[Rfam]
RNA sequence: GAUUGGCAGUGAUGACUCGGAAAUUUCAAGCUCAACAGACCGGAAUUAGGCGUUUCUUCCAAUUUAUUGGUUGAGUCGUUUCUGUGUCGAUAACCCCGCUGAUCUGAGCCUUC
Numbered sequence: 001g002a003u004u005g006g007c008a009g010u011g012a013u014g015a016c017u018c019g020g021a022a023a024u025u026u027c028a029a030g031c032u033c034a035a036c037a038g039a040c041c042g043g044a045a046u047u048a049g050g051c052g053u054u055u056c057u058u059c060c061a062a063u064u065u066a067u068u069g070g071u072u073g074a075g076u077c078g079u080u081u082c083u084g085u086g087u088c089g090a091u092a093a094c095c096c097c098g099c100u101g102a103u104c105u106g107a108g109c110c111u112u113c
Stems, first nucleotide, its partner, number of pairs: 001113002005110003
RNA: Small nucleolar RNA Z107/R87
Organism: Arabidopsis thaliana